[Rfam]
RNA: c-di-AMP riboswitch aptamer (ydaO/yuaA leader)
RNA sequence: GAUCCACCGUGGAUCAGUCCUGCGGGGAGCCGGGGAACCACGUGUUUUCUGGGGUGAAUCGGCAGGCGCGACGGUCGCACGUUGACCGCCGGACCCGCCGUAGGGCAACUUCCCGGCCCGAACCCGUCAGCUCACCCGGUAGGCGUUGAGGAAGAAAGG
Numbered sequence: 001g002a003u004c005c006a007c008c009g010u011g012g013a014u015c016a017g018u019c020c021u022g023c024g025g026g027g028a029g030c031c032g033g034g035g036a037a038c039c040a041c042g043u044g045u046u047u048u049c050u051g052g053g054g055u056g057a058a059u060c061g062g063c064a065g066g067c068g069c070g071a072c073g074g075u076c077g078c079a080c081g082u083u084g085a086c087c088g089c090c091g092g093a094c095c096c097g098c099c100g101u102a103g104g105g106c107a108a109c110u111u112c113c114c115g116g117c118c119c120g121a122a123c124c125c126g127u128c129a130g131c132u133c134a135c136c137c138g139g140u141a142g143g144c145g146u147u148g149a150g151g152a153a154g155a156a157a158g159g
Stems, first nucleotide, its partner, number of pairs: 003028003029140006039051002052125003060100004103119004